[Rfam]
RNA sequence: GCCAGGUCCAAAGGUAGUCAGUUAUCUCAAUGGAUUGUUCACAGUCAGUUACAGAUCGAACUCCUUGUUCUUACUCUUUCCCCCUUGUCACUACUGCACUUGAUUAGUCUUAA
Numbered sequence: 001g002c003c004a005g006g007u008c009c010a011a012a013g014g015u016a017g018u019c020a021g022u023u024a025u026c027u028c029a030a031u032g033g034a035u036u037g038u039u040c041a042c043a044g045u046c047a048g049u050u051a052c053a054g055a056u057c058g059a060a061c062u063c064c065u066u067g068u069u070c071u072u073a074c075u076c077u078u079u080c081c082c083c084c085u086u087g088u089c090a091c092u093a094c095u096g097c098a099c100u101u102g103a104u105u106a107g108u109c110u111u112a113a
Stems, first nucleotide, its partner, number of pairs: 001109001003107001005105004010101002014097002016092003020088001043075003047071002